[Rfam]
RNA: mir-199 microRNA precursor family
Organism: Dipodomys ordii
RNA sequence: GCCUCGCCAUCCCAGUGUUCAGACUACCUGUUCAGGCGGCUGUGAUGUGUACAGUAGUCUGCACACUGGUUAGGCUGGGUC
Dot-bracket structure: ...........(((((((.(((((((.((((.((.............)).))))))))))).)))))))............